[Rfam]
RNA: ybhL leader
Organism: Mesorhizobium sp. YM1C-6-2
RNA sequence: GAGGCAUGCUGGAGUCCCGCCAGCGGCGCCUGGGCGCUUGAAAGGGCCGCCCGACACCCGACGGGGCAGAA
Dot-bracket structure: .............((((((.....((....(((((.............)))))...))...))))))....